The record is a 165-nucleotide RNA sequence from Effusibacillus lacus, which matches "glmS glucosamine-6-phosphate activated ribozyme aptamer" in Rfam.
A search with the family's covariance model found it, with a score of 96 bits.
The family's consensus secondary structure is taken from published work.
For this family Rfam cites "Evidence for preorganization of the glmS ribozyme ligand binding pocket" (Hampel and Tinsley, Biochemistry, 2006).
Lineage of the source: Bacteria > Bacillota > Bacilli > Alicyclobacillaceae > Effusibacillus.
It is annotated as a riboswitch.

RNA sequence: AAGCUCGAUCUAGCGCCUGGACUGCAGGGCUGCCCUUGCAGUUGACGCGGAGGAGGUUUAGCGAACGGUUCGGCGGGUGCCUCCCGGCAGAUUGACCCUCUGCCGCAAGAGUGUGUUUGAAAUCCGGCGGGUGACCACCGGGACAAAAACACCUCAAGGGGAUGA
Numbered sequence: 001a002a003g004c005u006c007g008a009u010c011u012a013g014c015g016c017c018u019g020g021a022c023u024g025c026a027g028g029g030c031u032g033c034c035c036u037u038g039c040a041g042u043u044g045a046c047g048c049g050g051a052g053g054a055g056g057u058u059u060a061g062c063g064a065a066c067g068g069u070u071c072g073g074c075g076g077g078u079g080c081c082u083c084c085c086g087g088c089a090g091a092u093u094g095a096c097c098c099u100c101u102g103c104c105g106c107a108a109g110a111g112u113g114u115g116u117u118u119g120a121a122a123u124c125c126g127g128c129g130g131g132u133g134a135c136c137a138c139c140g141g142g143a144c145a146a147a148a149a150c151a152c153c154u155c156a157a158g159g160g161g162a163u164g165a
Base pairs, nucleotide, nucleotide: 020043021042022041023040024039025038026037027036029034052084053083054082055081056080062072063071064070085105086104087103088102089101090100111154113152114151115150116149124141125140126139127138129136130135